The record is a 63-nucleotide RNA sequence from Parascaris univalens, which matches "Small nucleolar RNA SNORD2" in Rfam.
The organism belongs to Parascaris, within Eukaryota.
[Rfam]
RNA sequence: AUGCGCGAUGAUGGAAACCAUCUUUCGGGUCUGAUCCUGAUGAAAAACUGAUGCUUAGCGCAU
Numbered sequence: 001a002u003g004c005g006c007g008a009u010g011a012u013g014g015a016a017a018c019c020a021u022c023u024u025u026c027g028g029g030u031c032u033g034a035u036c037c038u039g040a041u042g043a044a045a046a047a048c049u050g051a052u053g054c055u056u057a058g059c060g061c062a063u
Stems, first nucleotide, its partner, number of pairs: 001063006